[Rfam]
RNA sequence: UUUUGAGUGUAAGUAUAUCCUGUGCAAUAUUCAGGACAUACUUAUACUAAAA
Number, nucleotide and partner (000 for none) at each position: 001u000002u000003u000004u000005g000006a048007g047008u046009g045010u044011a043012a042013g000014u040015a039016u038017a000018u036019c035020c034021u033022g031023u000024g000025c000026a000027a000028u000029a000030u000031u022032c000033a021034g020035g019036a018037c000038a016039u015040a014041c000042u012043u011044a010045u009046a008047c007048u006049a000050a000051a000052a000

This 52-nucleotide RNA sequence from Odocoileus virginianus belongs to the Rfam family "mir-1302 microRNA precursor family". Pairs were carried over by alignment from the consensus structure, which was predicted with WAR. The organism belongs to Odocoileus virginianus, within Eukaryota. Its family is annotated with miRNA-mediated post-transcriptional gene silencing and RISC complex in the Gene Ontology. It scores 68 bits against the family's covariance model. A reference for the family is Morin et al. (2008), "Application of massively parallel sequencing to microRNA profiling and discovery in human embryonic stem cells", Genome Res.